[Rfam]
RNA sequence: UCACAGUGAUGAAAAACUGGUUCCUUUACAUUCGCAGUUUCCACGGUAGGAGUACGCUUACGAACCCAUCGUUAGUACUCUCGGUGACCGCUCUUCUAUAGAGACCUUCCUAGGAUGUCUGAGUGA
Numbered sequence: 001u002c003a004c005a006g007u008g009a010u011g012a013a014a015a016a017c018u019g020g021u022u023c024c025u026u027u028a029c030a031u032u033c034g035c036a037g038u039u040u041c042c043a044c045g046g047u048a049g050g051a052g053u054a055c056g057c058u059u060a061c062g063a064a065c066c067c068a069u070c071g072u073u074a075g076u077a078c079u080c081u082c083g084g085u086g087a088c089c090g091c092u093c094u095u096c097u098a099u100a101g102a103g104a105c106c107u108u109c110c111u112a113g114g115a116u117g118u119c120u121g122a123g124u125g126a
Base pairs, nucleotide, nucleotide: 001126002125003124004123050080051079052078053077054076055075